[Rfam]
Rfam assigns this 89-nucleotide RNA sequence from Xenorhabdus cabanillasii to the family "CyaR/Rye RNA". On this family, see Wassarman et al., Genes Dev 2001: "Identification of novel small RNAs using comparative genomics and microarrays". The family's consensus secondary structure was predicted with PFOLD.

RNA sequence: CUCUGAAAAAUGAAGAACUAAAAAAGUUUCACUGUAAGACUAGGAACCACCUCCUUGGCUAGCUCAAUCUCCCUUGGGCUAGCCUUUUU
Numbered sequence: 001c002u003c004u005g006a007a008a009a010a011u012g013a014a015g016a017a018c019u020a021a022a023a024a025a026g027u028u029u030c031a032c033u034g035u036a037a038g039a040c041u042a043g044g045a046a047c048c049a050c051c052u053c054c055u056u057g058g059c060u061a062g063c064u065c066a067a068u069c070u071c072c073c074u075u076g077g078g079c080u081a082g083c084c085u086u087u088u089u
Base pairs, nucleotide, nucleotide: 042055043054044053045052057084058083059082060081061080062079063078064077065076066075067074

A search with the family's covariance model found it, with a score of 81 bits. The source organism's lineage runs through Bacteria, Pseudomonadati, Pseudomonadota, Gammaproteobacteria and Xenorhabdus. By type it is a small RNA. About the family: This sRNA was originally identified in a large scale screen of E. coli.